[Rfam]
RNA sequence: CUUCUCAUACUCACGACUAACGACAAAUCUCUCUCAGAUUUUUAUCUCAUUGUUUAUUAAGAUAAAAUUACCAGAAAUAGAGCUCUCGUUAGCCGCGCGGGAUAUGAUAUUGAAGAUCUUCAAUAAAAAACGCGUCUAAUUAUACAUCAAAACAGUAAAUUGUCAUAAUUAUUCGCAGCAUAAAAAAAGAGGCUUAAGAGCCUCUUUUU
Numbered sequence: 001c002u003u004c005u006c007a008u009a010c011u012c013a014c015g016a017c018u019a020a021c022g023a024c025a026a027a028u029c030u031c032u033c034u035c036a037g038a039u040u041u042u043u044a045u046c047u048c049a050u051u052g053u054u055u056a057u058u059a060a061g062a063u064a065a066a067a068u069u070a071c072c073a074g075a076a077a078u079a080g081a082g083c084u085c086u087c088g089u090u091a092g093c094c095g096c097g098c099g100g101g102a103u104a105u106g107a108u109a110u111u112g113a114a115g116a117u118c119u120u121c122a123a124u125a126a127a128a129a130a131c132g133c134g135u136c137u138a139a140u141u142a143u144a145c146a147u148c149a150a151a152a153c154a155g156u157a158a159a160u161u162g163u164c165a166u167a168a169u170u171a172u173u174c175g176c177a178g179c180a181u182a183a184a185a186a187a188a189g190a191g192g193c194u195u196a197a198g199a200g201c202c203u204c205u206u207u208u209u
Base pairs, nucleotide, nucleotide: 001115002114003113004112005107006106007105012099014097015096017092018091019090020089021088022087023086121162122161123160124159189204190203191202192201193200194199

Background:
The family of this 209-nucleotide sequence from Zophobihabitans entericus is "SraG RNA". Rfam classes the family as a small RNA. Rfam describes the family as follows. This RNA was discovered in E. coli during a large scale screen. Evidence was found for specific cleavage of this RNA. The match comes from Rfam's covariance-model search (59 bits). Taxonomically the source falls in Zophobihabitans (Bacteria, Pseudomonadati, Pseudomonadota, Gammaproteobacteria). A reference for the family is Argaman et al. (2001), "Novel small RNA-encoding genes in the intergenic regions of Escherichia coli", Curr Biol.